The record is an 84-nucleotide RNA sequence from Streptomyces paludis, which matches "nrdJ RNA" in Rfam. Lineage of the source: Bacteria > Bacillati > Actinomycetota > Kitasatosporales > Streptomyces. It scores 74 bits against the family's covariance model. The family's RNA type in Rfam is small RNA.
[Rfam]
RNA sequence: ACCUGUCCCGGGUGUGCUCCCUGCAUGCCCGAGGCACCAGACAACAGCCCGUGCCACGGGAAGAACAUGGCACUUCAGGGCGUU
Dot-bracket structure: ...((((.((((((((.......)))))))).))))..............((((((.(.......).))))))...........